[Rfam]
RNA sequence: GUCCCUGUGAGGAAUCCAAGACCUACUGAUAGGAAGUGCCGUAUGACACCGUAAACAGCAGCUGUUUUACGCCUAUGCAAGUGUCCAUCUUUCGAUCAUAACCUUGGUGGUUUGGUCUGGAAUAGAGGACCCAUUUGCACAUCGGCUUGAUUCAGCUGUGUGCGUGAUUUUAAAUGGGUCUCUGAGGGAU
Numbered sequence: 001g002u003c004c005c006u007g008u009g010a011g012g013a014a015u016c017c018a019a020g021a022c023c024u025a026c027u028g029a030u031a032g033g034a035a036g037u038g039c040c041g042u043a044u045g046a047c048a049c050c051g052u053a054a055a056c057a058g059c060a061g062c063u064g065u066u067u068u069a070c071g072c073c074u075a076u077g078c079a080a081g082u083g084u085c086c087a088u089c090u091u092u093c094g095a096u097c098a099u100a101a102c103c104u105u106g107g108u109g110g111u112u113u114g115g116u117c118u119g120g121a122a123u124a125g126a127g128g129a130c131c132c133a134u135u136u137g138c139a140c141a142u143c144g145g146c147u148u149g150a151u152u153c154a155g156c157u158g159u160g161u162g163c164g165u166g167a168u169u170u171u172a173a174a175u176g177g178g179u180c181u182c183u184g185a186g187g188g189a190u
Stems, first nucleotide, its partner, number of pairs: 001190005076139008084126002087123002090120001094117005100112004